[Rfam]
RNA: Vault RNA
RNA sequence: ACACCGGCUUUAGCUCAGUAGUUACUUCGAUUUCACUCAAAUCCACCUGCUUGCGUGUUCGCGUCCAGUUAACUACAGGUGCUGCCCAGCAUUACU
Numbered sequence: 001a002c003a004c005c006g007g008c009u010u011u012a013g014c015u016c017a018g019u020a021g022u023u024a025c026u027u028c029g030a031u032u033u034c035a036c037u038c039a040a041a042u043c044c045a046c047c048u049g050c051u052u053g054c055g056u057g058u059u060c061g062c063g064u065c066c067a068g069u070u071a072a073c074u075a076c077a078g079g080u081g082c083u084g085c086c087c088a089g090c091a092u093u094a095c096u
Stems, first nucleotide, its partner, number of pairs: 004089001006087002013080003018076004026063001028061003
Dot-bracket structure: ...(.((.....(((..((((....(.(((............................))).).........)))).))).....)).).......